Group II catalytic intron D1-D4-1: an 87-nucleotide sequence from Saccharicrinis carchari. It scores 54 bits against the family's covariance model. The pairing is the family consensus, mapped onto this sequence. NCBI's taxonomy places the organism under Bacteria, Pseudomonadati, Bacteroidota, Marinilabiliales, Saccharicrinis.
RNA sequence: CAAACUGAACGGCGACAAUCAGCGAAAAGUUUUGAGAAGUCAGCAGAAGACAUAGUAUCUCUGGUUUUUUUUUUCAGAGAGAAGGUC
Numbered sequence: 001c002a003a004a005c006u007g008a009a010c011g012g013c014g015a016c017a018a019u020c021a022g023c024g025a026a027a028a029g030u031u032u033u034g035a036g037a038a039g040u041c042a043g044c045a046g047a048a049g050a051c052a053u054a055g056u057a058u059c060u061c062u063g064g065u066u067u068u069u070u071u072u073u074u075c076a077g078a079g080a081g082a083a084g085g086u087c
Stems, first nucleotide, its partner, number of pairs: 005022004011016001040047002049087003058080006